[Rfam]
Annotation:
This 76-nucleotide RNA sequence from Pogona vitticeps belongs to the Rfam family "mir-216 microRNA precursor family". The family's consensus secondary structure was predicted with WAR. Its family is annotated with miRNA-mediated post-transcriptional gene silencing and RISC complex in the Gene Ontology. For this family Rfam cites "Identification of novel chicken microRNAs and analysis of their genomic organization" (Shao et al., Gene, 2008). Clan: mir-216 clan. It scores 74 bits against the family's covariance model. Rfam 15.1 lists 1,667 matches to the family in 655 species.
Nucleotides: 076
Base pairs, nucleotide, nucleotide: 004073005072006071007070009068010067011066012065013064014063015062016061017060021057022056023054026052027051028050029049030048031047
Number, partner (000 for none) and nucleotide at each position: 001000a002000a003000c004073u005072g006071g007070u008000u009068u010067a011066a012065u013064c014063u015062c016061a017060g018000c019000u020000g021057g022056c023054a024000a025000c026052u027051g028050u029049g030048a031047g032000c033000a034000g035000u036000u037000c038000a039000u040000c041000a042000a043000u044000u045000c046000u047031c048030u049029c050028a051027c052026a053000g054023u055000g056022g057021c058000a059000c060017c061016u062015g063014g064013g065012a066011u067010u068009a069000u070007g071006c072005u073004a074000a075000a076000c